[Rfam]
Source information:
Rfam assigns this 118-nucleotide RNA from Clostridium sp. CAG:448 to the family "FMN riboswitch aptamer (RFN element)". The RFN element is a highly conserved domain that is found frequently in the 5'-untranslated regions of prokaryotic mRNAs that encode for flavin mononucleotide (FMN) biosynthesis and transport proteins. Lineage of the source: Bacteria > Clostridia > Eubacteriales > Clostridiaceae > Clostridium. The match comes from Rfam's covariance-model search (107 bits).

RNA sequence: AUCUAUCUUUGGGGAAGGGUGAAAAUCCCUACCGGCGGUGAUAGCCCGCGAACGCAGAUGCGCCGAACAGGUGAGAUUCCUGUGCCGACGGUUACAGUCCGGAUGGGAAAAGAUCAGA
Numbered sequence: 001a002u003c004u005a006u007c008u009u010u011g012g013g014g015a016a017g018g019g020u021g022a023a024a025a026u027c028c029c030u031a032c033c034g035g036c037g038g039u040g041a042u043a044g045c046c047c048g049c050g051a052a053c054g055c056a057g058a059u060g061c062g063c064c065g066a067a068c069a070g071g072u073g074a075g076a077u078u079c080c081u082g083u084g085c086c087g088a089c090g091g092u093u094a095c096a097g098u099c100c101g102g103a104u105g106g107g108a109a110a111a112g113a114u115c116a117g118a
Stems, first nucleotide, its partner, number of pairs: 005114006017029003031098002033087002035049004044085002053062002067083005089101003